[Rfam]
RNA sequence: AGUAGGACUAUGGUGGUCAAAGUUGGAGAGUUCUCGUCACGACCCCUGUCAGAUUUUAUCUCAAUCUGCAAUCAUACU
Numbered sequence: 001a002g003u004a005g006g007a008c009u010a011u012g013g014u015g016g017u018c019a020a021a022g023u024u025g026g027a028g029a030g031u032u033c034u035c036g037u038c039a040c041g042a043c044c045c046c047u048g049u050c051a052g053a054u055u056u057u058a059u060c061u062c063a064a065u066c067u068g069c070a071a072u073c074a075u076a077c078u
Stems, first nucleotide, its partner, number of pairs: 013046001015044004021078003026073002028040001030038001050068006

Mammalian CPEB3 ribozyme: a 78-nucleotide RNA from Erpetoichthys calabaricus.
The base pairs follow the family's consensus structure, which is taken from published work.
About the family: The mammalian CPEB3 ribozyme is a self cleaving RNA located in the second intron of the CPEB3 gene which belongs to a family of genes regulating messenger RNA polyadenylation. This ribozyme is highly conserved and found only in mammals. The CPEB3 ribozyme is structurally and biochemically related to the human hepatitis delta virus (HDV) ribozyme and the HDV ribozyme is proposed to have arisen from the human transcriptome.
The source organism's lineage runs through Eukaryota, Opisthokonta, Cladistia, Polypteriformes and Erpetoichthys.